[Rfam]
RNA sequence: AGGCGAUGACGAUAGAAAUCGUUUCUCGAUGCUGACAGUCAAUGGUGUUUCGACCUUUCAUUUCUUAUGAUGACCCAUUUAUGCGUGUCCGAGCCUC
Numbered sequence: 001a002g003g004c005g006a007u008g009a010c011g012a013u014a015g016a017a018a019u020c021g022u023u024u025c026u027c028g029a030u031g032c033u034g035a036c037a038g039u040c041a042a043u044g045g046u047g048u049u050u051c052g053a054c055c056u057u058u059c060a061u062u063u064c065u066u067a068u069g070a071u072g073a074c075c076c077a078u079u080u081a082u083g084c085g086u087g088u089c090c091g092a093g094c095c096u097c
Stems, first nucleotide, its partner, number of pairs: 001096004
Rfam assigns this 97-nucleotide RNA from Dorcoceras hygrometricum to the family "small nucleolar RNA snoR126". The match comes from Rfam's covariance-model search (55 bits). Taxonomically the source falls in Dorcoceras (Eukaryota, eudicotyledons, Gunneridae, Loxocarpinae). The family's RNA type in Rfam is C/D-box small nucleolar RNA. The base pairs follow the family's consensus structure, which was predicted with RNAalifold.